RNA sequence: AGGUGAGGUAGAGGCGCAAAUGCGAUCAGUACGGCUUUUGAACUGCGGGGAAGUGAUGAAAAAGCCGAAAAGGCGUAUUUGCCGAAGUUUGCAGCGGUCCCGCCGCUUGCAGGCUGGGGUGCCGCCGAACAGGCGGUGCACUGUCACAGCAUCAACUUGCUGUGGAGGACUACUGACAAU
Numbered sequence: 001a002g003g004u005g006a007g008g009u010a011g012a013g014g015c016g017c018a019a020a021u022g023c024g025a026u027c028a029g030u031a032c033g034g035c036u037u038u039u040g041a042a043c044u045g046c047g048g049g050g051a052a053g054u055g056a057u058g059a060a061a062a063a064g065c066c067g068a069a070a071a072g073g074c075g076u077a078u079u080u081g082c083c084g085a086a087g088u089u090u091g092c093a094g095c096g097g098u099c100c101c102g103c104c105g106c107u108u109g110c111a112g113g114c115u116g117g118g119g120u121g122c123c124g125c126c127g128a129a130c131a132g133g134c135g136g137u138g139c140a141c142u143g144u145c146a147c148a149g150c151a152u153c154a155a156c157u158u159g160c161u162g163u164g165g166a167g168g169a170c171u172a173c174u175g176a177c178a179a180u
Base pairs, nucleotide, nucleotide: 007174008173009172010171011170016082017081018080019079020078021077022076023075024074032067033066034065035064036063037062038061039060086115087114088113089112090111091110092109093108094106095105096104097103116142117141119139120138121137122136123135124134125133126132144165145164146163147162148161149160150159
Lysine riboswitch aptamer: a 180-nucleotide sequence from Salisediminibacterium halotolerans. Lineage of the source: Bacteria > Bacillota > Caryophanales > Bacillaceae > Salisediminibacterium. Riboswitches are metabolite binding domains within certain messenger RNAs that serve as precision sensors for their corresponding targets. The match comes from Rfam's covariance-model search (120 bits). Rfam links the family to the GO term lysine biosynthetic process.